[Rfam]
RNA sequence: CGAGUAAGUCAGAUAGUCGCGGAUCGUGAUUACACGAACGAGGAAAGUCCGAGCUCCAUAGGGCAAGGGUGCUGGGUAAUACCCAGUGGAGGCGACUCUAAGGAAAGUGCAACAGAAAUAAACCGCCAAUUUAUUUGGUAAGGAUGGAAAGGUGAGGUAAGAGCUCACCAGCAACUAGGCGACUAGUUGGCUAUGUAAACCCCACCCGGAGCAAGACCAAGUAGGGACUAUAUAGCGGCGGCCCGUCGUGUCCCGUGGUAGGUCGCUUGAGUUUACUGGCAACAGUAGACCUAGAUAGAUGGCUAUCAAAUACAGAACUCGGCUUAUAGACUUGCUCGUAUA
Numbered sequence: 001c002g003a004g005u006a007a008g009u010c011a012g013a014u015a016g017u018c019g020c021g022g023a024u025c026g027u028g029a030u031u032a033c034a035c036g037a038a039c040g041a042g043g044a045a046a047g048u049c050c051g052a053g054c055u056c057c058a059u060a061g062g063g064c065a066a067g068g069g070u071g072c073u074g075g076g077u078a079a080u081a082c083c084c085a086g087u088g089g090a091g092g093c094g095a096c097u098c099u100a101a102g103g104a105a106a107g108u109g110c111a112a113c114a115g116a117a118a119u120a121a122a123c124c125g126c127c128a129a130u131u132u133a134u135u136u137g138g139u140a141a142g143g144a145u146g147g148a149a150a151g152g153u154g155a156g157g158u159a160a161g162a163g164c165u166c167a168c169c170a171g172c173a174a175c176u177a178g179g180c181g182a183c184u185a186g187u188u189g190g191c192u193a194u195g196u197a198a199a200c201c202c203c204a205c206c207c208g209g210a211g212c213a214a215g216a217c218c219a220a221g222u223a224g225g226g227a228c229u230a231u232a233u234a235g236c237g238g239c240g241g242c243c244c245g246u247c248g249u250g251u252c253c254c255g256u257g258g259u260a261g262g263u264c265g266c267u268u269g270a271g272u273u274u275a276c277u278g279g280c281a282a283c284a285g286u287a288g289a290c291c292u293a294g295a296u297a298g299a300u301g302g303c304u305a306u307c308a309a310a311u312a313c314a315g316a317a318c319u320c321g322g323c324u325u326a327u328a329g330a331c332u333u334g335c336u337c338g339u340a341u342a
Stems, first nucleotide, its partner, number of pairs: 001338010011327001012307007020040002024037005045325003049322005054211004062244002067207005072086005087101001088099004102202002107200002109196003123143002125139005151169006171191001172189007215264004225254002229250001235249005271290008
Shown here is a 342-nucleotide sequence from Crassaminicella thermophila, a member of the family "Bacterial RNase P class A". A search with the family's covariance model found it, with a score of 300 bits. Rfam classes the family as a ribozyme.